[Rfam]
RNA: Selenocysteine transfer RNA
Organism: Hydatigera taeniaeformis
RNA sequence: GCCGGGAUGAGCCUCGGUGGUCCGUGGUGCAGGCUUCAAACCUGUAGCUGACUAGCAUCAGAGCGGUUCGAUUCCGCCUUCUCGGC
Number, nucleotide and partner (000 for none) at each position: 001g086002c085003c084004g083005g082006g081007a080008u000009g078010a000011g000012c027013c026014u000015c024016g023017g022018u000019g000020g000021u000022c017023c016024g015025u000026g013027g012028u046029g045030c044031a043032g042033g041034c000035u000036u000037c000038a000039a000040a000041c033042c032043u031044g030045u029046a028047g000048c061049u060050g059051a058052c000053u000054a000055g000056c000057a000058u051059c050060a049061g048062a000063g077064c076065g075066g074067u000068u000069c000070g000071a000072u000073u000074c066075c065076g064077c063078c009079u000080u007081c006082u005083c004084g003085g002086c001